[Rfam]
RNA sequence: AAUACGAUUUGUUAGGUGAGGCUCCUAUACAAACACAGGCUGCUGCCCAAAAAUGUCGAGAGACGCCAAUGGGUAGAACAGGAAUUGUCGAAUACAAGGCUUUUCAUAAGGCAGCUAAAAGCAAUGCUUUUUACGUUGUAUAGUGCUAAAACUCAACGAUUAGAUCAAUAA
Numbered sequence: 001a002a003u004a005c006g007a008u009u010u011g012u013u014a015g016g017u018g019a020g021g022c023u024c025c026u027a028u029a030c031a032a033a034c035a036c037a038g039g040c041u042g043c044u045g046c047c048c049a050a051a052a053a054u055g056u057c058g059a060g061a062g063a064c065g066c067c068a069a070u071g072g073g074u075a076g077a078a079c080a081g082g083a084a085u086u087g088u089c090g091a092a093u094a095c096a097a098g099g100c101u102u103u104u105c106a107u108a109a110g111g112c113a114g115c116u117a118a119a120a121g122c123a124a125u126g127c128u129u130u131u132u133a134c135g136u137u138g139u140a141u142a143g144u145g146c147u148a149a150a151a152c153u154c155a156a157c158g159a160u161u162a163g164a165u166c167a168a169u170a171a
Stems, first nucleotide, its partner, number of pairs: 006166005011157002013097001015153003020147003025143008039115005045074005054065004082105003087100003117131003
Source information
The record is a 171-nucleotide RNA from Candidatus Enterococcus clewellii, which matches "M-box riboswitch aptamer (ykoK leader)" in Rfam. The base pairs follow the family's consensus structure. About the family: M-box riboswitch, also know as ykoK leader is described as a metaloregulatory RNA that sense divalent metals and function as a genetic control element of genes related to divalent metal transport in bacteria. It was first reported upstream of the B.subtilis ykoK gene and genes with related functions in other bacteria.